[Rfam]
RNA sequence: ACCUGGUUGAUCCUGCCAGUAGUCAUAUGCUUGUCUCGCAGAUUAAGCCAUGCAUGUCUAAGUAUAAACAGAUUACAGUGAAACUGCGAAUGGCUCAUUAAAACAGUUAUUGUUUGCUUGGAGUAUUUUUCCACCGGAUAUCCGUGGAAAUCCUACAGCUAAUACGUAGCCAAUCCUUUAGGGGAUGUAGCAUAUUAGUUUGAACAAUCGGCACAUUUUUGAUGUGUGAAUUAUGAGAAAUUUUAUGCACGAAUCGUAUAUCAUACGACAGUCCAUCAAAGUUUCUGACCUAUCAGGUUCCGACGGUUGGGUAUUGGCCAACCGUGCCUAUAACGGGUAACGGGGGAUUAGGGUUUGAUUUCGGAGAGGGAGCAUGAGAGAUGGCUACCACAUCUAAGGAAGGCAGCAGGCGCGCAAAUUACCUAUCCCUGACUCAGGGAGGUAGUAAACAGAAAUAAUGGCACAUGUUUUAAACAUGUGAUCGGAACGAAUGGUUUCUAAAUAAAACCAUGAAAGCAAUUGGAGGGCAAGUCUGGUGCCAGCAGCCGCGGUAAUACCAGCUCCAAUAGCGUAUAUUAUUGAUGUUG
Number, nucleotide and partner (000 for none) at each position: 001a000002c000003c019004u018005g017006g016007u015008u000009g000010a000011u000012c000013c000014u000015g007016c006017c005018a004019g003020u000021a577022g576023u575024c000025a574026u573027a572028u571029g570030c569031u568032u000033g000034u453035c452036u451037c000038g000039c000040a446041g413042a000043u000044u000045a000046a000047g411048c410049c409050a000051u408052g407053c406054a000055u000056g087057u086058c000059u000060a000061a085062g084063u083064a000065u000066a000067a000068a079069c078070a000071g000072a000073u000074u000075a000076c000077a000078g069079u068080g000081a000082a000083a063084c062085u061086g057087c056088g000089a000090a000091u000092g000093g000094c366095u365096c364097a000098u000099u000100a000101a000102a000103a000104c287105a286106g285107u000108u000109a282110u281111u000112g000113u280114u279115u000116g000117c000118u000119u275120g274121g273122a272123g000124u000125a000126u000127u000128u000129u000130u000131c000132c000133a000134c000135c166136g165137g000138a000139u000140a000141u000142c158143c000144g156145u155146g154147g153148a000149a000150a000151u000152c000153c147154u146155a145156c144157a000158g142159c000160u000161a000162a000163u000164a000165c136166g135167u000168a000169g000170c000171c000172a000173a000174u000175c183176c182177u000178u000179u000180a000181g000182g176183g175184g000185a000186u000187g000188u000189a000190g248191c247192a246193u245194a244195u000196u000197a000198g000199u000200u000201u000202g000203a000204a000205c235206a234207a000208u000209c000210g000211g000212c221213a220214c000215a000216u000217u000218u000219u000220u213221g212222a000223u000224g000225u000226g000227u000228g000229a000230a000231u000232u000233a000234u206235g205236a000237g000238a000239a000240a000241u000242u000243u000244u194245a193246u192247g191248c190249a000250c000251g000252a000253a000254u268255c267256g266257u265258a264259u000260a000261u000262c000263a000264u258265a257266c256267g255268a254269c000270a000271g000272u122273c121274c120275a119276u000277c000278a000279a114280a113281g110282u109283u000284u000285c106286u105287g104288a000289c337290c336291u335292a000293u000294c000295a000296g328297g327298u326299u000300c000301c000302g000303a325304c324305g323306g322307u321308u320309g319310g318311g000312u000313a000314u000315u000316g000317g000318c310319c309320a308321a307322c306323c305324g304325u303326g298327c297328c296329u000330a000331u000332a000333a000334c000335g291336g290337g289338u000339a000340a000341c363342g362343g361344g360345g356346g355347a354348u353349u000350a000351g000352g000353g348354u347355u346356u345357g000358a000359u000360u344361u343362c342363g341364g096365a095366g094367a000368g389369g388370g000371a386372g385373c384374a000375u000376g000377a000378g000379a000380g000381a000382u000383g000384g373385c372386u371387a000388c369389c368390a000391c402392a000393u400394c399395u000396a000397a000398g000399g394400a393401a000402g391403g000404c000405a000406g053407c052408a051409g049410g048411c047412g000413c041414g000415c000416a000417a000418a000419u444420u000421a443422c442423c441424u000425a000426u000427c439428c438429c437430u436431g435432a000433c000434u000435c431436a430437g429438g428439g427440a000441g423442g422443u421444a419445g000446u040447a000448a000449a000450c000451a036452g035453a034454a000455a000456u000457a000458a000459u484460g483461g482462c480463a479464c478465a477466u476467g475468u474469u473470u000471u000472a000473a469474a468475c467476a466477u465478g464479u463480g462481a000482u461483c460484g459485g000486a000487a000488c000489g000490a000491a511492u510493g508494g000495u507496u506497u505498c000499u000500a000501a000502a000503u000504a000505a497506a496507a495508c493509c000510a492511u491512g000513a000514a000515a000516g000517c000518a000519a000520u566521u565522g564523g563524a562525g561526g000527g000528c000529a000530a000531g000532u000533c560534u559535g558536g557537u000538g000539c000540c000541a000542g549543c548544a000545g000546c000547c000548g543549c542550g000551g000552u000553a000554a000555u000556a000557c536558c535559a534560g533561c525562u524563c523564c522565a521566a520567u000568a031569g030570c029571g028572u027573a026574u025575a023576u022577u021578a000579u000580u000581g000582a000583u000584g000585u000586u000587g000

Shown here is a 587-nucleotide part of an RNA from Pterospora floridiensis, a member of the family "Eukaryotic small subunit ribosomal RNA". Lineage of the source: Eukaryota > Sar > Alveolata > Apicomplexa > Pterospora.